tRNA: a 72-nucleotide RNA sequence from Streptomyces sp. ISL-94. The family is grouped with related families in Rfam's "tRNA clan". The source organism's lineage runs through Bacteria, Actinomycetota, Actinomycetes, Streptomycetaceae and Streptomyces.
Nucleotides: 072
Base pairs, nucleotide, nucleotide: 001071002070003069004068005067006066007065010025011024012023013022027043028042029041030040031039048064049063050062051061052060
Number, partner (000 for none) and nucleotide at each position: 001071u002070c003069c004068c005067c006066u007065g008000u009000g010025g011024u012023g013022u014000a015000a016000u017000c018000g019000g020000c021000a022013a023012c024011a025010c026000g027043g028042c029041u030040u031039a032000c033000u034000u035000u036000g037000g038000a039031u040030a041029a042028g043027u044000u045000g046000u047000u048064u049063c050062a051061g052060g053000u054000u055000c056000g057000a058000g059000u060052c061051c062050u063049g064048g065007c066006a067005g068004g069003g070002g071001a072000g